[Rfam]
RNA: U12 minor spliceosomal RNA
Organism: Camphora micrantha
RNA sequence: UUGCCUUAAACUAAUGAGUAAGGAAAACAAAGCGAACGGUGGGAGCUGUUCGCAGCGCAAUUAACUCAUCGUGCGCAUGAAUUUAUGGAGGGGUUACAGGCUGGCCGAGUGCUGACGCUGCUUACUUUUGCAGAACUCACUUGCGCGGGCCUCCC
Number, nucleotide and partner (000 for none) at each position: 001u000002u000003g000004c023005c022006u021007u020008a019009a000010a000011c000012u000013a000014a000015u000016g000017a000018g000019u008020a007021a006022g005023g004024a000025a000026a000027a000028c000029a000030a000031a000032g053033c052034g051035a050036a049037c048038g047039g046040u000041g000042g000043g000044a000045g000046c039047u038048g037049u036050u035051c034052g033053c032054a000055g076056c075057g074058c073059a072060a000061u000062u000063a000064a000065c000066u000067c000068a000069u000070c000071g000072u059073g058074c057075g056076c055077a000078u000079g000080a000081a000082u000083u000084u000085a000086u000087g000088g000089a000090g000091g000092g155093g154094u000095u000096a000097c000098a152099g151100g150101c149102u148103g000104g146105c000106c143107g142108a000109g140110u139111g138112c000113u000114g000115a000116c000117g000118c133119u132120g131121c130122u000123u000124a000125c000126u000127u000128u000129u000130g121131c120132a119133g118134a000135a000136c000137u000138c111139a110140c109141u000142u107143g106144c000145g000146c104147g000148g102149g101150c100151c099152u098153c000154c093155c092